7SK RNA: a 326-nucleotide RNA from Calidris pygmaea. The base pairs follow the family's consensus structure, which is taken from published work. The family's RNA type in Rfam is non-coding RNA gene. A search with the family's covariance model found it, with a score of 260 bits. Rfam 15.1 lists 49,373 matches to the family in 668 species. Rfam describes the family as follows. 7SK was discovered as an abundant small nuclear RNA in the mid-70s but a possible function has only recently been suggested. Its Rfam clan is "7SK clan". The source organism's lineage runs through Eukaryota, Amniota, Theropoda, Charadriiformes and Calidris.
[Rfam]
RNA sequence: GAAUGUGAGGGUGAUCUGGCCGUGAUAUCUGUCACACCAUUGAUCGCCAGGGUUAAUUUGGCUGAUCUGGCUGACUAGGCGGGUGUCCCCUUCCUCCCUCACUGUUCCAUAUGCGUGCCUCCCAAAACUGUGUGCUCCCUCAAAGAGGACAACCUUCCCCAAGAGAGACUUACCAUUCAUUGGUCAAGGGUAUAUGCUAGCUGCGCUCCCCUACUAGAACCUCCAAACGUGCUCAAGGUCCAUUUGUAGGAAAAUGUAAGGUAGCUAAGCCUCCAAGACUGCAGACACAUCCAAGUGAGACACUACAUGGGGCAGUCUGCCAUUGU
Numbered sequence: 001g002a003a004u005g006u007g008a009g010g011g012u013g014a015u016c017u018g019g020c021c022g023u024g025a026u027a028u029c030u031g032u033c034a035c036a037c038c039a040u041u042g043a044u045c046g047c048c049a050g051g052g053u054u055a056a057u058u059u060g061g062c063u064g065a066u067c068u069g070g071c072u073g074a075c076u077a078g079g080c081g082g083g084u085g086u087c088c089c090c091u092u093c094c095u096c097c098c099u100c101a102c103u104g105u106u107c108c109a110u111a112u113g114c115g116u117g118c119c120u121c122c123c124a125a126a127a128c129u130g131u132g133u134g135c136u137c138c139c140u141c142a143a144a145g146a147g148g149a150c151a152a153c154c155u156u157c158c159c160c161a162a163g164a165g166a167g168a169c170u171u172a173c174c175a176u177u178c179a180u181u182g183g184u185c186a187a188g189g190g191u192a193u194a195u196g197c198u199a200g201c202u203g204c205g206c207u208c209c210c211c212u213a214c215u216a217g218a219a220c221c222u223c224c225a226a227a228c229g230u231g232c233u234c235a236a237g238g239u240c241c242a243u244u245u246g247u248a249g250g251a252a253a254a255u256g257u258a259a260g261g262u263a264g265c266u267a268a269g270c271c272u273c274c275a276a277g278a279c280u281g282c283a284g285a286c287a288c289a290u291c292c293a294a295g296u297g298a299g300a301c302a303c304u305a306c307a308u309g310g311g312g313c314a315g316u317c318u319g320c321c322a323u324u325g326u
Base pairs, nucleotide, nucleotide: 001108003106005102006101007100008099009098010097011096013093014092018090019089024087025086026085027084028083029082030081031080032079033078037070038069039068042067043066044065045064046062047061048060117170119167120166121165125136128134140162147158148157149156200270201269202268206264207263209261210260212258213257214256222251223250224249227247228246229245231243295326297323299321301319302316303315304314306312